RNA sequence: GGGAGGUGAUGAGUGGUCACACUUGCAAUUUGAAAAAAUGCGAGAUGGGUGCUCAGCCCAAAGCCUGGUUACGACAAUUUGGGUACUCCCAUUUUUAUCCAAUCUGAUCCC
Numbered sequence: 001g002g003g004a005g006g007u008g009a010u011g012a013g014u015g016g017u018c019a020c021a022c023u024u025g026c027a028a029u030u031u032g033a034a035a036a037a038a039u040g041c042g043a044g045a046u047g048g049g050u051g052c053u054c055a056g057c058c059c060a061a062a063g064c065c066u067g068g069u070u071a072c073g074a075c076a077a078u079u080u081g082g083g084u085a086c087u088c089c090c091a092u093u094u095u096u097a098u099c100c101a102a103u104c105u106g107a108u109c110c111c
Base pairs, nucleotide, nucleotide: 001111002110003109004108014101015100016099022044023043024042025041026040047088048087049086050085051084052083053082065081068078069077